[Rfam]
RNA sequence: CAGGGUACCUUUGACACUUCUUAGUUCAACCAAAUGAACUAAAAUUUUAAAGUUACAUAACUUUUUGAAAAACUAGUUCAUUUGUUUGAACUAAGGAGGAUCAAAGGAUACCUG
Numbered sequence: 001c002a003g004g005g006u007a008c009c010u011u012u013g014a015c016a017c018u019u020c021u022u023a024g025u026u027c028a029a030c031c032a033a034a035u036g037a038a039c040u041a042a043a044a045u046u047u048u049a050a051a052g053u054u055a056c057a058u059a060a061c062u063u064u065u066u067g068a069a070a071a072a073c074u075a076g077u078u079c080a081u082u083u084g085u086u087u088g089a090a091c092u093a094a095g096g097a098g099g100a101u102c103a104a105a106g107g108a109u110a111c112c113u114g
Stems, first nucleotide, its partner, number of pairs: 001114004008107007017098013031084011
The family of this 114-nucleotide RNA sequence from Brachypodium distachyon is "MIR5070 microRNA precursor family". Clan: MIR2863 microRNA precursor clan. The base pairs follow the family's consensus structure, which was predicted with RNAalifold. The organism belongs to Brachypodium, within Eukaryota.